[Rfam]
RNA sequence: GUCAGCACCCCGCGCUAAAGCGACGGGGCAUCAUGCCUCUCCUUUAGGUAGCUGACCAGCCUAAGUCUUAGCUGACUACGUUAGAUAAGUCACGACACCCUAGAAUGCGUUGCUAGUUCUCGGCUCUGUCGUUAGCAAUUAAACAUCUUUACGAGGGGUAAGGAAGUGUUGUUAACAAAUACAAGCUUAUUUAACAUUGGCGAAGCUCACAUCAC
Numbered sequence: 001g002u003c004a005g006c007a008c009c010c011c012g013c014g015c016u017a018a019a020g021c022g023a024c025g026g027g028g029c030a031u032c033a034u035g036c037c038u039c040u041c042c043u044u045u046a047g048g049u050a051g052c053u054g055a056c057c058a059g060c061c062u063a064a065g066u067c068u069u070a071g072c073u074g075a076c077u078a079c080g081u082u083a084g085a086u087a088a089g090u091c092a093c094g095a096c097a098c099c100c101u102a103g104a105a106u107g108c109g110u111u112g113c114u115a116g117u118u119c120u121c122g123g124c125u126c127u128g129u130c131g132u133u134a135g136c137a138a139u140u141a142a143a144c145a146u147c148u149u150u151a152c153g154a155g156g157g158g159u160a161a162g163g164a165a166g167u168g169u170u171g172u173u174a175a176c177a178a179a180u181a182c183a184a185g186c187u188u189a190u191u192u193a194a195c196a197u198u199g200g201c202g203a204a205g206c207u208c209a210c211a212u213c214a215c
Base pairs, nucleotide, nucleotide: 001056002055003054004053005052006051007049009028010027011025012024014021015020059201060200061199063197064077065076066075067074080195081194082193083192084191085190086189087188088187089186090185095129096128099123100122102120103119104118105117106116112206113205114204131176132175133174134173135172136171137170138169139168143167144166146164147163149162150161151159152158
This 215-nucleotide RNA from Gloeothece verrucosa belongs to the Rfam family "HNH endonuclease-associated RNA and ORF (HEARO) RNA". Rfam 15.1 lists 952 matches to the family in 249 species. By type it is a non-coding RNA gene. The literature on the family includes a 2009 paper in Nature by Weinberg et al., "Exceptional structured noncoding RNAs revealed by bacterial metagenome analysis".